[Rfam]
RNA sequence: UGAUGCAAAGGGUGAAACAGUCGCAAAUUUCAUGUUUACAUGAAAAUUUGUGACUUUGAACCCUGCAAAACAUGAGAAAGGAGCCAUUUUCAUAGAAAAUGUGCGGAUUUCGAAUGUUUUAGAAUUGCGAGAGCAUAGAAUGCGGAGCAAUUCGUAGCAUCA
Numbered sequence: 001u002g003a004u005g006c007a008a009a010g011g012g013u014g015a016a017a018c019a020g021u022c023g024c025a026a027a028u029u030u031c032a033u034g035u036u037u038a039c040a041u042g043a044a045a046a047u048u049u050g051u052g053a054c055u056u057u058g059a060a061c062c063c064u065g066c067a068a069a070a071c072a073u074g075a076g077a078a079a080g081g082a083g084c085c086a087u088u089u090u091c092a093u094a095g096a097a098a099a100u101g102u103g104c105g106g107a108u109u110u111c112g113a114a115u116g117u118u119u120u121a122g123a124a125u126u127g128c129g130a131g132a133g134c135a136u137a138g139a140a141u142g143c144g145g146a147g148c149a150a151u152u153c154g155u156a157g158c159a160u161c162a
Stems, first nucleotide, its partner, number of pairs: 001162006010063004019055011030043005067120007076111004083104002085101005122153007133143004

Description:
This 162-nucleotide sequence from Firmicutes bacterium CAG:56 belongs to the Rfam family "Clostridiales-1 RNA". The match comes from Rfam's covariance-model search (109 bits). NCBI's taxonomy places the organism under Bacteria, Bacillati, Bacillota.